[Rfam]
RNA sequence: UCUCCCGCUUCACCUCCCUGAGCGGGCGCCUUGACCCUGUUAAGGCUUUUUGGCCCCCGGACCCCCCUUAUCCGGGGGCCCUUUGUUU
Numbered sequence: 001u002c003u004c005c006c007g008c009u010u011c012a013c014c015u016c017c018c019u020g021a022g023c024g025g026g027c028g029c030c031u032u033g034a035c036c037c038u039g040u041u042a043a044g045g046c047u048u049u050u051u052g053g054c055c056c057c058c059g060g061a062c063c064c065c066c067c068u069u070a071u072c073c074g075g076g077g078g079c080c081c082u083u084u085g086u087u088u
Stems, first nucleotide, its partner, number of pairs: 004026006028046007053079008
Shown here is an 88-nucleotide sequence from Dechloromonas sp. HYN0024, a member of the family "Burkholderia RNA 7 (anti-hemB)". The family's RNA type in Rfam is small RNA. On this family, see Weinberg et al., Nucleic Acids Res 2007: "Identification of 22 candidate structured RNAs in bacteria using the CMfinder comparative genomics pipeline". This RNA motif was identified by computational search in b-proteobacteria Burkholderia.